Pseudomonas sRNA CrcZ: a 397-nucleotide sequence from Pseudomonas sp. TAD18. NCBI's taxonomy places the organism under Bacteria, Pseudomonadati, Gammaproteobacteria, Pseudomonadaceae, Pseudomonas. The family's RNA type in Rfam is small RNA. Rfam links the family to the GO term carbon catabolite repression of transcription. The family has 19 seed sequences and 127 matches in Rfam 15.1. The match comes from Rfam's covariance-model search (333 bits).
RNA sequence: ACAAGAACAAUAAGAAUCACAGCAACACACAAUAAAAAUAAGACGUAUCGGCUCACGCAUAACAAGAACAACACGGCGGAGGCGCAGCUAACUGAUUCUUUUGGAGAGGUGUUGUCAUUGGGGCUUGCCCCACGACUAGGCAGAGAACAACAAAAACUGCACUUAAAGCAGAGCCUGAACUAGUUGGAUCACUGAUCACAUCAACACAGCGACCAAAGCAAUCCGUUUGCUCUUAUCUCCCGAUUGGGAGGGUUACACAGGUAAAACUUGGGUAACCAGGGCAAUUAACAAAAACAAAAAGCCCGCAACCAAUAAUAAAAAUAGAGCACGCAACUAAUUCUGGGGGAGCUUCGGCUCCCCUUGUGGUUCCUGACAUUCAGAAAAAUUUACAGCCCGU
Numbered sequence: 001a002c003a004a005g006a007a008c009a010a011u012a013a014g015a016a017u018c019a020c021a022g023c024a025a026c027a028c029a030c031a032a033u034a035a036a037a038a039u040a041a042g043a044c045g046u047a048u049c050g051g052c053u054c055a056c057g058c059a060u061a062a063c064a065a066g067a068a069c070a071a072c073a074c075g076g077c078g079g080a081g082g083c084g085c086a087g088c089u090a091a092c093u094g095a096u097u098c099u100u101u102u103g104g105a106g107a108g109g110u111g112u113u114g115u116c117a118u119u120g121g122g123g124c125u126u127g128c129c130c131c132a133c134g135a136c137u138a139g140g141c142a143g144a145g146a147a148c149a150a151c152a153a154a155a156a157c158u159g160c161a162c163u164u165a166a167a168g169c170a171g172a173g174c175c176u177g178a179a180c181u182a183g184u185u186g187g188a189u190c191a192c193u194g195a196u197c198a199c200a201u202c203a204a205c206a207c208a209g210c211g212a213c214c215a216a217a218g219c220a221a222u223c224c225g226u227u228u229g230c231u232c233u234u235a236u237c238u239c240c241c242g243a244u245u246g247g248g249a250g251g252g253u254u255a256c257a258c259a260g261g262u263a264a265a266a267c268u269u270g271g272g273u274a275a276c277c278a279g280g281g282c283a284a285u286u287a288a289c290a291a292a293a294a295c296a297a298a299a300a301g302c303c304c305g306c307a308a309c310c311a312a313u314a315a316u317a318a319a320a321a322u323a324g325a326g327c328a329c330g331c332a333a334c335u336a337a338u339u340c341u342g343g344g345g346g347a348g349c350u351u352c353g354g355c356u357c358c359c360c361u362u363g364u365g366g367u368u369c370c371u372g373a374c375a376u377u378c379a380g381a382a383a384a385a386u387u388u389a390c391a392g393c394c395c396g397u
Base pairs, nucleotide, nucleotide: 049084050083052081053080054079099218100217101216102215103214113211114210115209133186134185135184136183137182138181139180157171158170159169160168236251237250238249239248240247273379275377279304280303281302282301324369325368326367327366342361343360344359345358346357347356348355349354
Source information:
The base pairs follow the family's consensus structure, which was predicted with WAR.